Shown here is a 67-nucleotide sequence from Cyprinus carpio, a member of the family "S15-Flavobacteria ribosomal protein leader". By type it is a cis-regulatory leader. Its Rfam clan is "Ribosomal Protein S15 Leader clan". Pairs were carried over by alignment from the consensus structure, which is taken from published work. The match comes from Rfam's covariance-model search (47 bits). Lineage of the source: Eukaryota > Osteoglossocephalai > Otomorpha > Cyprinus > Cyprinus carpio. A reference for the family is Eckert and Weinberg (2020), "Discovery of 20 novel ribosomal leader candidates in bacteria and archaea", BMC Microbiol.
[Rfam]
RNA sequence: UAUUCUUGCUGGCUUUGAAAAAAAGGUUUUAGGAAGCAUGAAAGUCAUUUAAAUUAAUAUUAGUAUG
Numbered sequence: 001u002a003u004u005c006u007u008g009c010u011g012g013c014u015u016u017g018a019a020a021a022a023a024a025g026g027u028u029u030u031a032g033g034a035a036g037c038a039u040g041a042a043a044g045u046c047a048u049u050u051a052a053a054u055u056a057a058u059a060u061u062a063g064u065a066u067g
Stems, first nucleotide, its partner, number of pairs: 014033006